[Rfam]
Notes:
Rfam assigns this 240-nucleotide sequence from Flavobacteriaceae bacterium TMED171 to the family "permuted transfer-messenger RNA". The base pairs follow the family's consensus structure, which is taken from published work.
RNA sequence: GUAACGUUGAAGCAAACUCAACACCAGACAGGACCCCGGGGCGGUACCGGGCGGCUCCACCAAAAAUACUUCGAUCCCUCAAAUUACAUUGACGAGGGUGUCAUUUGAGGGGCCGAACUAGGAUCGACUGAUGGUUAUUAGGUUCGGUGGAGUUACCGGUAGGCGAUGACCGUAAAUCAAGCAAACUUUAUAAACGCAAACGAUAACUUUGCUAACGAGGAUUUUGCCUUAGCGGCAUAA
Numbered sequence: 001g002u003a004a005c006g007u008u009g010a011a012g013c014a015a016a017c018u019c020a021a022c023a024c025c026a027g028a029c030a031g032g033a034c035c036c037c038g039g040g041g042c043g044g045u046a047c048c049g050g051g052c053g054g055c056u057c058c059a060c061c062a063a064a065a066a067u068a069c070u071u072c073g074a075u076c077c078c079u080c081a082a083a084u085u086a087c088a089u090u091g092a093c094g095a096g097g098g099u100g101u102c103a104u105u106u107g108a109g110g111g112g113c114c115g116a117a118c119u120a121g122g123a124u125c126g127a128c129u130g131a132u133g134g135u136u137a138u139u140a141g142g143u144u145c146g147g148u149g150g151a152g153u154u155a156c157c158g159g160u161a162g163g164c165g166a167u168g169a170c171c172g173u174a175a176a177u178c179a180a181g182c183a184a185a186c187u188u189u190a191u192a193a194a195c196g197c198a199a200a201c202g203a204u205a206a207c208u209u210u211g212c213u214a215a216c217g218a219g220g221a222u223u224u225u226g227c228c229u230u231a232g233c234g235g236c237a238u239a240a
Base pairs, nucleotide, nucleotide: 001156002155003154004153005152015144016143017142025133026132029130030129031128035051036050037049038048039047052115053114054113055112056111057110058109157172158171159170160169
Dot-bracket structure: (((((.........(((.......((..(((...(((((.......)))))(((((((..................................................)))))))............))).))........))).......)))))((((........))))....................................................................